[Rfam]
RNA: Bacteroidales small SRP
RNA sequence: UUGCAUCGGGUAAGUCUUAUACGACCAGCUCCUGUUUAAUCCCCCAGGUUCGGAAGAAAGCAAGGGCAAAUGGUUGUAGCGGUGCGAUAUAAGUAGCUUACCCAUUU
Number, nucleotide and partner (000 for none) at each position: 001u000002u000003g000004c000005a000006u000007c000008g103009g102010g101011u100012a099013a098014g097015u096016c000017u092018u091019a090020u089021a088022c086023g085024a083025c082026c000027a000028g000029c000030u000031c000032c000033u000034g000035u000036u000037u000038a000039a000040u000041c000042c000043c000044c000045c000046a000047g000048g000049u000050u000051c000052g000053g000054a000055a000056g000057a000058a000059a000060g000061c000062a000063a000064g000065g000066g000067c000068a000069a000070a000071u000072g000073g000074u000075u000076g000077u000078a000079g000080c000081g000082g025083u024084g000085c023086g022087a000088u021089a020090u019091a018092a017093g000094u000095a000096g015097c014098u013099u012100a011101c010102c009103c008104a000105u000106u000107u000